[Rfam]
RNA: Iron response element I
Organism: Molossus molossus
RNA sequence: UGGUUUCUUGCUUCAACAGUGCUUGGAGGGAACCUG
Numbered sequence: 001u002g003g004u005u006u007c008u009u010g011c012u013u014c015a016a017c018a019g020u021g022c023u024u025g026g027a028g029g030g031a032a033c034c035u036g
Stems, first nucleotide, its partner, number of pairs: 001036003005032004012027005017021001